[Rfam]
RNA sequence: GCGCGUGUUCCGGGGUCGGUGCAAGUCCGAACCGGCGGUGACAGUCCGCGACCCGGCCUGAGGGCCGGUUGAUGUGGUGAAACUCCACGACCGACGGUGAAAGUCCGGAUGGGAGGAACCGCGG
Dot-bracket structure: ..(((..(((......(((.......))).[[((((((.....[[))))...((............))....(((((.......)))))]])).(((.....]]))).......)))..)))..
This 124-nucleotide sequence from Microlunatus parietis belongs to the Rfam family "FMN riboswitch aptamer (RFN element)". The source organism's lineage runs through Bacteria, Bacillati, Propionibacteriales, Propionibacteriaceae and Microlunatus. It scores 90 bits against the family's covariance model. Gene Ontology term of the family: FMN binding.